[Rfam]
RNA sequence: GUCUUGAAGGUCUGUGGUUGAAAGUCCAAGCCAGAUGCAGGCAAAAGGAUCCACGUAAGCCGACCAAAAACGGUUACGGUGAGCAUAGUGCAUCUUAGGAGUAAGACCUGCCGAUUAUAAUCGAGAGGGGUAGUAGUGCGACGAACUCAAGCGAACCUCCCAGCAGGCGAGUGUGGGGGAAAAGACCAGGUCAGCUUCAAGAU
Numbered sequence: 001g002u003c004u005u006g007a008a009g010g011u012c013u014g015u016g017g018u019u020g021a022a023a024g025u026c027c028a029a030g031c032c033a034g035a036u037g038c039a040g041g042c043a044a045a046a047g048g049a050u051c052c053a054c055g056u057a058a059g060c061c062g063a064c065c066a067a068a069a070a071c072g073g074u075u076a077c078g079g080u081g082a083g084c085a086u087a088g089u090g091c092a093u094c095u096u097a098g099g100a101g102u103a104a105g106a107c108c109u110g111c112c113g114a115u116u117a118u119a120a121u122c123g124a125g126a127g128g129g130g131u132a133g134u135a136g137u138g139c140g141a142c143g144a145a146c147u148c149a150a151g152c153g154a155a156c157c158u159c160c161c162a163g164c165a166g167g168c169g170a171g172u173g174u175g176g177g178g179g180a181a182a183a184g185a186c187c188a189g190g191u192c193a194g195c196u197u198c199a200a201g202a203u
Stems, first nucleotide, its partner, number of pairs: 001203009012194003015188005028174001030172001031041001033095007050088001058080001060078001086181001107167005112123004127160004136152002
RNA: raiA RNA
Organism: Filifactor alocis